[Rfam]
RNA sequence: GUAAGGUUGAUGAAAGAAAUCAUUCGGAUUCCCACUGAGAAUACUGUGAUUACUAUAACCAGCUACUUUUGACUUAC
Numbered sequence: 001g002u003a004a005g006g007u008u009g010a011u012g013a014a015a016g017a018a019a020u021c022a023u024u025c026g027g028a029u030u031c032c033c034a035c036u037g038a039g040a041a042u043a044c045u046g047u048g049a050u051u052a053c054u055a056u057a058a059c060c061a062g063c064u065a066c067u068u069u070u071g072a073c074u075u076a077c
Stems, first nucleotide, its partner, number of pairs: 001077005
RNA: Small nucleolar RNA R12
Organism: Nicotiana sylvestris